[Rfam]
Nucleotides: 055
Base pairs, nucleotide, nucleotide: 001015002014003013004012005011023051024050025049032044033043034042035041
Number, partner (000 for none) and nucleotide at each position: 001015c002014g003013g004012g005011a006000u007000a008000a009000c010000g011005u012004c013003c014002c015001g016000u017000a018000u019000g020000a021000a022000a023051a024050g025049g026000a027000a028000u029000g030000u031000a032044g033043c034042c035041c036000u037000c038000u039000u040000u041035g042034g043033g044032c045000c046000g047000a048000a049025c050024c051023u052000u053000a054000g055000g
This 55-nucleotide RNA sequence belongs to the Rfam family "eL15-Euryarchaeota ribosomal protein leader". By type it is a cis-regulatory leader. For this family Rfam cites "Discovery of 20 novel ribosomal leader candidates in bacteria and archaea" (Eckert and Weinberg, BMC Microbiol, 2020). The base pairs follow the family's consensus structure, which is taken from published work.